The family of this 154-nucleotide RNA sequence from Amborella trichopoda is "MIR8565 microRNA precursor family". The base pairs follow the family's consensus structure, which was predicted with RNAalifold. Its family is annotated with RISC complex and miRNA-mediated post-transcriptional gene silencing in the Gene Ontology.
[Rfam]
RNA sequence: CCCACACCCAUAUGUGUAGGACCUCAAAGGAUAGCCAUUAAAUUUGGCACAGAUCUCUAAAAACGUUGUCACAUGGGUGUGGAACUUGACUUUUUUAGAGAUCUGUGCCAAAUUUAAUGGUGAUCCUUUGCAGUCCUACGCACAUGGGUGUAGG
Numbered sequence: 001c002c003c004a005c006a007c008c009c010a011u012a013u014g015u016g017u018a019g020g021a022c023c024u025c026a027a028a029g030g031a032u033a034g035c036c037a038u039u040a041a042a043u044u045u046g047g048c049a050c051a052g053a054u055c056u057c058u059a060a061a062a063a064c065g066u067u068g069u070c071a072c073a074u075g076g077g078u079g080u081g082g083a084a085c086u087u088g089a090c091u092u093u094u095u096u097a098g099a100g101a102u103c104u105g106u107g108c109c110a111a112a113u114u115u116a117a118u119g120g121u122g123a124u125c126c127u128u129u130g131c132a133g134u135c136c137u138a139c140g141c142a143c144a145u146g147g148g149u150g151u152a153g154g
Base pairs, nucleotide, nucleotide: 002153004151005150006149007148008147009146010145011144013142015140016139017138018137019136020135021134022133025130026129027128028127030125031124032123034121035120036119037118038117039116040115041114042113043112044111045110046109047108048107049106050105051104052103053102054101055100056099057098058097059096060095061094062093063092065090066089067088068087069082070081071080072079073078